[Rfam]
RNA sequence: AAACCGCCCCCUAAGUAUUGCCCCUUUUGCAGUUUUGGCCCCAGACCAAUUUUAACCAAGUCAAUGCACACGUGGAUGCACAUGUGUAAUUUUUUUUAAUUAAAAAAAUAAGAAAUUUUUUUAAUAAUUAAAAAAAAUCACAUGUGGCAUCCACAUCAGCUUUGACUUGGUCAAAAUUGAUCUGGGGCCAAAACUGCAAAAGGGGCAAUACUUAGGGGGCGGUUU
Number, nucleotide and partner (000 for none) at each position: 001a225002a224003a000004c222005c221006g220007c219008c218009c000010c000011c000012u214013a213014a212015g211016u210017a209018u208019u207020g206021c205022c204023c203024c202025u201026u200027u199028u198029g197030c196031a195032g194033u193034u192035u191036u190037g189038g188039c187040c186041c185042c184043a183044g000045a000046c000047c000048a000049a000050u000051u000052u000053u000054a000055a000056c000057c000058a000059a000060g000061u000062c000063a000064a000065u000066g000067c000068a000069c000070a156071c000072g000073u153074g152075g151076a150077u149078g148079c147080a000081c000082a000083u000084g000085u000086g000087u000088a000089a000090u000091u000092u000093u000094u000095u000096u000097u000098a000099a000100u000101u000102a000103a000104a000105a000106a000107a000108a000109u000110a000111a000112g000113a000114a000115a000116u000117u000118u000119u000120u000121u000122u000123a000124a000125u000126a000127a000128u000129u000130a000131a000132a000133a000134a000135a000136a000137a000138u000139c000140a000141c000142a000143u000144g000145u000146g000147g079148c078149a077150u076151c075152c074153a073154c000155a000156u070157c000158a000159g000160c000161u000162u000163u000164g000165a000166c000167u000168u000169g000170g000171u000172c000173a000174a000175a000176a000177u000178u000179g000180a000181u000182c000183u043184g042185g041186g040187g039188c038189c037190a036191a035192a034193a033194c032195u031196g030197c029198a028199a027200a026201a025202g024203g023204g022205g021206c020207a019208a018209u017210a016211c015212u014213u013214a012215g000216g000217g000218g008219g007220c006221g005222g004223u000224u002225u001
A member of the RNA family "MIR2619 microRNA precursor family" from Medicago truncatula, 225 nucleotides long. The family's consensus secondary structure was predicted with RNAalifold.